A member of the RNA family "c-di-AMP riboswitch aptamer (ydaO/yuaA leader)" from Streptomyces xanthii, 164 nucleotides long.
[Rfam]
RNA sequence: GACGCGUCAGCGCCGUGGGCAGGAGCGGGGGACCCAAGGUAGGCGCCGUCCGGAAAGCGAUACUCCGGUACGGCUUGGGGUUAAGCCGCGCACUAGGUUGCGCGGCCGGGCACUCACUGGCCCGCACCCGACAGCUCACCUCGUAGGCGUCGGUGAGGGGAUCU
Numbered sequence: 001g002a003c004g005c006g007u008c009a010g011c012g013c014c015g016u017g018g019g020c021a022g023g024a025g026c027g028g029g030g031g032a033c034c035c036a037a038g039g040u041a042g043g044c045g046c047c048g049u050c051c052g053g054a055a056a057g058c059g060a061u062a063c064u065c066c067g068g069u070a071c072g073g074c075u076u077g078g079g080g081u082u083a084a085g086c087c088g089c090g091c092a093c094u095a096g097g098u099u100g101c102g103c104g105g106c107c108g109g110g111c112a113c114u115c116a117c118u119g120g121c122c123c124g125c126a127c128c129c130g131a132c133a134g135c136u137c138a139c140c141u142c143g144u145a146g147g148c149g150u151c152g153g154u155g156a157g158g159g160g161a162u163c164u
Base pairs, nucleotide, nucleotide: 005149006148007147008146013023014022025144026143027142028141029140030139035077036076037075038074078129079128080127086105087104088103089102090101091100108123109122110121111120
It scores 64 bits against the family's covariance model. Rfam's curators write: This family represents a conserved RNA structure found upstream of the ydaO and yuaA genes in Bacillus subtilis and related genes in other bacteria. Taxonomically the source falls in Streptomyces (Bacteria, Actinomycetes, Kitasatosporales, Streptomycetaceae).